RNA sequence: AGCUGGCCUGAAGGUAGUGAAUUAUCUUAAUUCACUGUUCAGUCUGUUACAGAUUGAACUCCUUGUUCCACUCUUUAGCCUCUUCUCACUACUGCACUUGACUAGUCUUAA
Numbered sequence: 001a002g003c004u005g006g007c008c009u010g011a012a013g014g015u016a017g018u019g020a021a022u023u024a025u026c027u028u029a030a031u032u033c034a035c036u037g038u039u040c041a042g043u044c045u046g047u048u049a050c051a052g053a054u055u056g057a058a059c060u061c062c063u064u065g066u067u068c069c070a071c072u073c074u075u076u077a078g079c080c081u082c083u084u085c086u087c088a089c090u091a092c093u094g095c096a097c098u099u100g101a102c103u104a105g106u107c108u109u110a111a
Stems, first nucleotide, its partner, number of pairs: 002106005008100001010099002014095002016090005042072001046068001
Description: A member of the RNA family "Y RNA" from Otolemur garnettii, 111 nucleotides long. A search with the family's covariance model found it, with a score of 50 bits. The source organism's lineage runs through Eukaryota, Gnathostomata, Teleostomi, Euteleostomi and Otolemur. The base pairs follow the family's consensus structure, which is taken from published work.